[Rfam]
RNA sequence: CGGUGCAAGCAUCGCACGCAAGCACUUGAGUGACACAGAGGAUCCGUUAGAAUGACGGGACCUGCCACAAGGGAACGCACGAUGAAACGCCGAACACGCUGUCGAUCUAUCGUCGCCCGGCCGUAAGCACUGCGCACCCUUCUCCGCCGCUGCCGCCGGGCCUCAUGACACCAGAGCGCCGGGAGGCGGCCGGAUCCUGCGAUCUGCCCCGUCCUGGAAAUCCGAUUACGACGGUCCCUCGUCGUCACCGCGCCGCGCGUGCCGGUGAUCCGCCAUCGACCGCCGGGAGCAGGGCAUGGAACA
Numbered sequence: 001c002g003g004u005g006c007a008a009g010c011a012u013c014g015c016a017c018g019c020a021a022g023c024a025c026u027u028g029a030g031u032g033a034c035a036c037a038g039a040g041g042a043u044c045c046g047u048u049a050g051a052a053u054g055a056c057g058g059g060a061c062c063u064g065c066c067a068c069a070a071g072g073g074a075a076c077g078c079a080c081g082a083u084g085a086a087a088c089g090c091c092g093a094a095c096a097c098g099c100u101g102u103c104g105a106u107c108u109a110u111c112g113u114c115g116c117c118c119g120g121c122c123g124u125a126a127g128c129a130c131u132g133c134g135c136a137c138c139c140u141u142c143u144c145c146g147c148c149g150c151u152g153c154c155g156c157c158g159g160g161c162c163u164c165a166u167g168a169c170a171c172c173a174g175a176g177c178g179c180c181g182g183g184a185g186g187c188g189g190c191c192g193g194a195u196c197c198u199g200c201g202a203u204c205u206g207c208c209c210c211g212u213c214c215u216g217g218a219a220a221u222c223c224g225a226u227u228a229c230g231a232c233g234g235u236c237c238c239u240c241g242u243c244g245u246c247a248c249c250g251c252g253c254c255g256c257g258c259g260u261g262c263c264g265g266u267g268a269u270c271c272g273c274c275a276u277c278g279a280c281c282g283c284c285g286g287g288a289g290c291a292g293g294g295c296a297u298g299g300a301a302c303a
Base pairs, nucleotide, nucleotide: 006032007031014025017022071139072138073137076134077133083125084124089106091104092103111123112122114120143193144192146190147189148188149187150185151184153182154181159180160179161178162176163175164174199295200292208287209286210285211284223278224277225276226275232272233271234270238267240265243264244263246261249259250258251257252256

This 303-nucleotide RNA from Thioalkalivibrio sp. ALE20 belongs to the Rfam family "mgtE ncRNA motif".
Lineage of the source: Bacteria > Pseudomonadota > Chromatiales > Ectothiorhodospiraceae > Thioalkalivibrio.